[Rfam]
RNA sequence: AGUUCCGGGUGCUCGGGACGUUCCAAGAUCAAAGAACCGUGGGAAAGAAACGCCUGCCAAGCCCCUCCCCGCCUCCCCGGUCACGGCCGGGCGGGGCGGGGCCCGGCGCUCACACGGCUGAGUGAAUAUGCCCCAGAUCGGCCGAGGUUGGGUGGUUCGUGGGUCUACGCUCGGCGCAGACAACCACAGACAUGAGACGACCCCCGCCGGGACCGACAUCCCGGACGAGGGUCUGACCACCGAGGAAGGACAGCUUCCUG
Numbered sequence: 001a002g003u004u005c006c007g008g009g010u011g012c013u014c015g016g017g018a019c020g021u022u023c024c025a026a027g028a029u030c031a032a033a034g035a036a037c038c039g040u041g042g043g044a045a046a047g048a049a050a051c052g053c054c055u056g057c058c059a060a061g062c063c064c065c066u067c068c069c070c071g072c073c074u075c076c077c078c079g080g081u082c083a084c085g086g087c088c089g090g091g092c093g094g095g096g097c098g099g100g101g102c103c104c105g106g107c108g109c110u111c112a113c114a115c116g117g118c119u120g121a122g123u124g125a126a127u128a129u130g131c132c133c134c135a136g137a138u139c140g141g142c143c144g145a146g147g148u149u150g151g152g153u154g155g156u157u158c159g160u161g162g163g164u165c166u167a168c169g170c171u172c173g174g175c176g177c178a179g180a181c182a183a184c185c186a187c188a189g190a191c192a193u194g195a196g197a198c199g200a201c202c203c204c205c206g207c208c209g210g211g212a213c214c215g216a217c218a219u220c221c222c223g224g225a226c227g228a229g230g231g232u233c234u235g236a237c238c239a240c241c242g243a244g245g246a247a248g249g250a251c252a253g254c255u256u257c258c259u260g
Base pairs, nucleotide, nucleotide: 008241009240010239011238110125111124112123113122115120141175142174143173144172145171199233200232201231202230203229205227206226209222210221211220212219244258245257246256247255248254